[Rfam]
RNA sequence: GAACGCGACUUUGUAAAAAACAACGAGUCAGCUUGAAUGCUAGUGUGGCGCGCGCCAUGCGACACUGUUAAAUUGCGGGGACCCCCUGAAGCUUUGUCCUACCAAGUGCUUGUGCGCGAAAGCGCCAGCAUGGCCGAGCCAAUCGCCCUGGGUAUGGUAACAACGGACAAGGAUGUUAUAUAUGGGUGAUCCGCAGCCAAGUCCUACGUCGAAUCGCGCAUGUUCGAUAUGGAACGGGUUCACAGACUAGAUAGCAGUGGGUGGCACACACACGUGUGUCGCUUAAGAUAUAGUCGGUCUCGUGCCGAAACGCACGG
Numbered sequence: 001g002a003a004c005g006c007g008a009c010u011u012u013g014u015a016a017a018a019a020a021c022a023a024c025g026a027g028u029c030a031g032c033u034u035g036a037a038u039g040c041u042a043g044u045g046u047g048g049c050g051c052g053c054g055c056c057a058u059g060c061g062a063c064a065c066u067g068u069u070a071a072a073u074u075g076c077g078g079g080g081a082c083c084c085c086c087u088g089a090a091g092c093u094u095u096g097u098c099c100u101a102c103c104a105a106g107u108g109c110u111u112g113u114g115c116g117c118g119a120a121a122g123c124g125c126c127a128g129c130a131u132g133g134c135c136g137a138g139c140c141a142a143u144c145g146c147c148c149u150g151g152g153u154a155u156g157g158u159a160a161c162a163a164c165g166g167a168c169a170a171g172g173a174u175g176u177u178a179u180a181u182a183u184g185g186g187u188g189a190u191c192c193g194c195a196g197c198c199a200a201g202u203c204c205u206a207c208g209u210c211g212a213a214u215c216g217c218g219c220a221u222g223u224u225c226g227a228u229a230u231g232g233a234a235c236g237g238g239u240u241c242a243c244a245g246a247c248u249a250g251a252u253a254g255c256a257g258u259g260g261g262u263g264g265c266a267c268a269c270a271c272a273c274g275u276g277u278g279u280c281g282c283u284u285a286a287g288a289u290a291u292a293g294u295c296g297g298u299c300u301c302g303u304g305c306c307g308a309a310a311c312g313c314a315c316g317g
Stems, first nucleotide, its partner, number of pairs: 063259005069253002074195006084186003196239002202233003209227005243296001245295005261282009302315004

The record is a 317-nucleotide RNA sequence from Plasmodiophora brassicae, which matches "Group I catalytic intron" in Rfam. Pairs were carried over by alignment from the consensus structure, which is taken from published work. The match comes from Rfam's covariance-model search (102 bits). Group I catalytic introns are large self-splicing ribozymes. Gene Ontology term of the family: Group I intron splicing. Taxonomically the source falls in Plasmodiophora (Eukaryota, Sar, Rhizaria, Endomyxa). The family has 12 seed sequences and 5,602 matches in Rfam 15.1.